Rfam assigns this 152-nucleotide RNA sequence from Janthinobacterium sp. KBS0711 to the family "Group II catalytic intron D1-D4-7".
Taxonomically the source falls in Janthinobacterium (Bacteria, Pseudomonadota, Betaproteobacteria, Oxalobacteraceae).
RNA sequence: CCGGAUGUACGACCAUCUGUCACCUACUUGAGUGUGCGUCGCCGGUAACGGCGGGGUGCAAAGCCUCAGGGACAACGUACCCCCAUUCUUUUUCGGCAGCCCGGCGUGCGAACGCUUGGCUGGAGACUGCGAGCAGCGAUGCGGUCCAGGGG
Numbered sequence: 001c002c003g004g005a006u007g008u009a010c011g012a013c014c015a016u017c018u019g020u021c022a023c024c025u026a027c028u029u030g031a032g033u034g035u036g037c038g039u040c041g042c043c044g045g046u047a048a049c050g051g052c053g054g055g056g057u058g059c060a061a062a063g064c065c066u067c068a069g070g071g072a073c074a075a076c077g078u079a080c081c082c083c084c085a086u087u088c089u090u091u092u093u094c095g096g097c098a099g100c101c102c103g104g105c106g107u108g109c110g111a112a113c114g115c116u117u118g119g120c121u122g123g124a125g126a127c128u129g130c131g132a133g134c135a136g137c138g139a140u141g142c143g144g145u146c147c148a149g150g151g152g
Base pairs, nucleotide, nucleotide: 002019003018004017005016006015007014028069029068030067031066032065033060034059035058036057037056039054040053041052042051043050044049082096083095085093097122098121099120100119106113107112126145127144128143129142130141131140

Pairs were carried over by alignment from the consensus structure. The literature on the family includes a 2001 paper in Trends Genet by Bonen and Vogel, "The ins and outs of group II introns".